[Rfam]
RNA sequence: CUGGCGACAAGUGACACCUCACUUGGGGUAUUUGACAAACUGACACUCGCUGAUACAGAGUGUCCAGCUCAGCUUGUCAAAUACACUAAGUGGGGGGCCUGAUCUC
Numbered sequence: 001c002u003g004g005c006g007a008c009a010a011g012u013g014a015c016a017c018c019u020c021a022c023u024u025g026g027g028g029u030a031u032u033u034g035a036c037a038a039a040c041u042g043a044c045a046c047u048c049g050c051u052g053a054u055a056c057a058g059a060g061u062g063u064c065c066a067g068c069u070c071a072g073c074u075u076g077u078c079a080a081a082u083a084c085a086c087u088a089a090g091u092g093g094g095g096g097g098c099c100u101g102a103u104c105u106c
Base pairs, nucleotide, nucleotide: 020092021091022090023089026086028084029083030082031081032080033079034078035077036076037075038074040072041071042064043063044062045061047059048058

Rfam assigns this 106-nucleotide RNA sequence from Kryptolebias marmoratus to the family "mir-223 microRNA precursor family". For this family Rfam cites "Vertebrate microRNA genes" (Lim et al., Science, 2003). The family's consensus secondary structure was predicted with RNAalifold. Its family is annotated with RISC complex and miRNA-mediated post-transcriptional gene silencing in the Gene Ontology. A search with the family's covariance model found it, with a score of 58 bits.